Actinobacteria sRNA Ms_IGR-7: a 117-nucleotide RNA sequence from Nocardioides guangzhouensis. The pairing is the family consensus, mapped onto this sequence. A search with the family's covariance model found it, with a score of 50 bits. A reference for the family is Li et al. (2013), "Identification of small RNAs in Mycobacterium smegmatis using heterologous Hfq", RNA.
[Rfam]
RNA sequence: AGAGGGUGCUCCUCGAGUUCUGCCUGAUCUCGUGUGUGAUAACCGUGAUCGUGCAGGUCAGGAGCACCCUCUUGCUCAAGACCCGCCGCUACCGGGGCAUCUGAGCGGUGGAUUCAG
Numbered sequence: 001a002g003a004g005g006g007u008g009c010u011c012c013u014c015g016a017g018u019u020c021u022g023c024c025u026g027a028u029c030u031c032g033u034g035u036g037u038g039a040u041a042a043c044c045g046u047g048a049u050c051g052u053g054c055a056g057g058u059c060a061g062g063a064g065c066a067c068c069c070u071c072u073u074g075c076u077c078a079a080g081a082c083c084c085g086c087c088g089c090u091a092c093c094g095g096g097g098c099a100u101c102u103g104a105g106c107g108g109u110g111g112a113u114u115c116a117g
Base pairs, nucleotide, nucleotide: 002071003070004069005068006067007066008065009064010063011062012061013060017059019057020056021055022054023053025051026050027049028048034043035042097115099113100112101111102110103109